[Rfam]
Nucleotides: 290
Base pairs, nucleotide, nucleotide: 014096015095016094017093023088024087026085027084028083029082030081031080032079036076037075038074040051041050042049058073059072060071061070097150098149099148100147101146152224153223154222155221156198157197158196159193160192161191162190165185166184167183168182169181170180171179202219203218204217205216206215207214208213232256233255234254235253236251237250238249239248267287268286269285270284271283272282273281
Number, partner (000 for none) and nucleotide at each position: 001000a002000u003000a004000c005000g006000u007000g008000u009000a010000g011000g012000g013000u014096g015095g016094a017093g018000a019000c020000g021000c022000a023088c024087g025000a026085c027084c028083a029082u030081c031080g032079g033000a034000c035000u036076g037075u038074g039000u040051a041050g042049c043000a044000c045000c046000g047000a048000c049042g050041c051040u052000g053000u054000u055000c056000a057000a058073g059072a060071c061070g062000c063000a064000u065000c066000a067000u068000c069000g070061c071060g072059u073058c074038c075037g076036c077000u078000c079032c080031c081030g082029a083028u084027g085026g086000c087024c088023g089000a090000u091000u092000c093017c094016u095015c096014c097150u098149c099148c100147u101146g102000a103000u104000c105000a106000a107000a108000g109000c110000u111000u112000u113000u114000g115000c116000u117000g118000a119000c120000u121000g122000g123000g124000u125000g126000u127000c128000a129000u130000c131000u132000g133000u134000c135000a136000c137000c138000a139000c140000a141000g142000c143000a144000a145000g146101c147100a148099g149098g150097a151000a152224c153223g154222u155221c156198g157197u158196c159193g160192c161191g162190a163000c164000u165185c166184u167183u168182c169181a170180g171179c172000c173000c174000c175000a176000c177000u178000g179171g180170c181169u182168g183167a184166a185165g186000a187000a188000c189000c190162u191161c192160g193159c194000u195000g196158g197157a198156c199000a200000c201000u202219g203218g204217a205216g206215c207214g208213u209000c210000c211000c212000c213208a214207c215206g216205c217204u218203c219202c220000u221155g222154a223153c224152g225000u226000g227000c228000u229000c230000u231000g232256a233255c234254a235253c236251c237250g238249a239248c240000c241000g242000u243000g244000a245000g246000a247000a248239g249238u250237c251236g252000u253235g254234u255233g256232u257000g258000c259000c260000g261000a262000a263000c264000g265000c266000c267287g268286u269285u270284u271283c272282c273281g274000g275000c276000a277000g278000c279000c280000c281273c282272g283271g284270a285269a286268a287267c288000c289000g290000a